A member of the RNA family "Glycine riboswitch aptamer" from Clostridium sp. FS41, 84 nucleotides long.
RNA sequence: AUGAUAGAUUCGGGAGAGACCGCGCAGGACGCGGCGCCGAAGGGGAAGCGGAGAACUCUCAGGCAAAAGGACCGAAUACUGGAC
Dot-bracket structure: .......((((((......((((.......)))).(((((..(((..........))))).))).......)))))).......

Rfam describes the family as follows. This family represents the bacterial glycine riboswitch. Glycine riboswitches usually consist of two metabolite-binding aptamers domains with similar structures in tandem. The aptamers cooperatively bind glycine to regulate the expression of downstream genes.